The record is a 79-nucleotide sequence from Parascaris univalens, which matches "SmY spliceosomal RNA" in Rfam. For this family Rfam cites "A survey of nematode SmY RNAs" (Jones et al., RNA Biol, 2009). The base pairs follow the family's consensus structure, which is taken from published work.
[Rfam]
RNA sequence: UAUCGUGACUCAAAUAAGUCAGGGCCUUUUUCAAGACCCGAAGUACAAUUUUUGGAGGCUCACCGGGGAUGGUGGGCUA
Numbered sequence: 001u002a003u004c005g006u007g008a009c010u011c012a013a014a015u016a017a018g019u020c021a022g023g024g025c026c027u028u029u030u031u032c033a034a035g036a037c038c039c040g041a042a043g044u045a046c047a048a049u050u051u052u053u054g055g056a057g058g059c060u061c062a063c064c065g066g067g068g069a070u071g072g073u074g075g076g077c078u079a
Stems, first nucleotide, its partner, number of pairs: 022039003026035003057078009